[Rfam]
RNA: Small nucleolar RNA snoR104
Organism: Apium graveolens
RNA sequence: GGGGACCAUCCAUAGUUGUAGAUGGUACCUGAUAUAAGCUUCCUAUAGAAAAUUCUGUAUUUUCCUGCUUGUGGCUGUUAAGAAAGUUCACAGGUCUCCAAUUACGGAAUACACAA
Numbered sequence: 001g002g003g004g005a006c007c008a009u010c011c012a013u014a015g016u017u018g019u020a021g022a023u024g025g026u027a028c029c030u031g032a033u034a035u036a037a038g039c040u041u042c043c044u045a046u047a048g049a050a051a052a053u054u055c056u057g058u059a060u061u062u063u064c065c066u067g068c069u070u071g072u073g074g075c076u077g078u079u080a081a082g083a084a085a086g087u088u089c090a091c092a093g094g095u096c097u098c099c100a101a102u103u104a105c106g107g108a109a110u111a112c113a114c115a116a
Stems, first nucleotide, its partner, number of pairs: 001030003005026006054109001056107001067095008076086001078085001